[Rfam]
RNA: tRNA
Organism: Thermodesulfovibrio yellowstonii
RNA sequence: GGGGUGGUAGUUCAGCACGGUUAGAACGCUUGCCUGUCACGCAAGAGGCCGCGGGUUCAAGUCCCGUCCACCCCG
Numbered sequence: 001g002g003g004g005u006g007g008u009a010g011u012u013c014a015g016c017a018c019g020g021u022u023a024g025a026a027c028g029c030u031u032g033c034c035u036g037u038c039a040c041g042c043a044a045g046a047g048g049c050c051g052c053g054g055g056u057u058c059a060a061g062u063c064c065c066g067u068c069c070a071c072c073c074c075g
Base pairs, nucleotide, nucleotide: 001074002073003072004071005070006069007068010027011026012025013024029045030044031043032042033041051067052066053065054064055063